A member of the RNA family "Histone 3' UTR stem-loop" from Fukomys damarensis, 46 nucleotides long.
RNA sequence: CCAACGGCUCUUUUCAGAGCCACCCACUUUGUCUAAAAAGAGCUGU
Numbered sequence: 001c002c003a004a005c006g007g008c009u010c011u012u013u014u015c016a017g018a019g020c021c022a023c024c025c026a027c028u029u030u031g032u033c034u035a036a037a038a039a040g041a042g043c044u045g046u
Stems, first nucleotide, its partner, number of pairs: 006021006
The mRNAs of metazoan histone genes lack a poly-A tail. 3' end processing occurs at a site between a highly conserved stem-loop (modelled by this family) and a purine rich region around 20 nts downstream (the histone downstream element, or HDE). The stem-loop is bound by a 31 kDa stem-loop binding protein (SLBP - also termed the histone hairpin binding protein, or HBP). Together with U7 snRNA binding of the HDE, SLBP binding nucleate s the formation of the processing complex. The histone 3' UTR stem-loop is also involved in nucleocytoplasmic transport of the mRNA, and in stability regulation and translation efficiency in the cytoplasm. Taxonomically the source falls in Fukomys (Eukaryota, Opisthokonta, Eumetazoa, Vertebrata).